[Rfam]
RNA sequence: AUGAUCUCUAUGAUGAACUAUUUCGGAUGUAAACACAGACCUGUUCCGAACAGCGCAAAAACCGUGUGGAGAUUUCCGUUGCCUUCCUUCUGAUCAGAUCA
Number, nucleotide and partner (000 for none) at each position: 001a000002u000003g100004a099005u098006c000007u000008c000009u000010a000011u000012g000013a000014u000015g000016a000017a000018c000019u000020a000021u000022u000023u000024c078025g077026g076027a075028u000029g000030u000031a000032a000033a000034c000035a000036c000037a000038g000039a000040c000041c000042u000043g000044u000045u000046c000047c000048g000049a000050a000051c000052a000053g000054c000055g000056c000057a000058a000059a000060a000061a000062c000063c000064g000065u000066g000067u000068g000069g000070a000071g000072a000073u000074u000075u027076c026077c025078g024079u000080u000081g000082c000083c000084u000085u000086c000087c000088u000089u000090c000091u000092g000093a000094u000095c000096a000097g000098a005099u004100c003101a000

Small nucleolar RNA Z13/snr52: a 101-nucleotide RNA from Aspergillus pseudotamarii.
Rfam 15.1 lists 1,203 matches to the family in 866 species.
Its family is annotated with RNA processing and nucleolus in the Gene Ontology.
It scores 97 bits against the family's covariance model.
Pairs were carried over by alignment from the consensus structure, which was predicted with PFOLD.
The source organism's lineage runs through Eukaryota, saccharomyceta, Eurotiomycetidae, Aspergillaceae and Aspergillus subgen. Circumdati.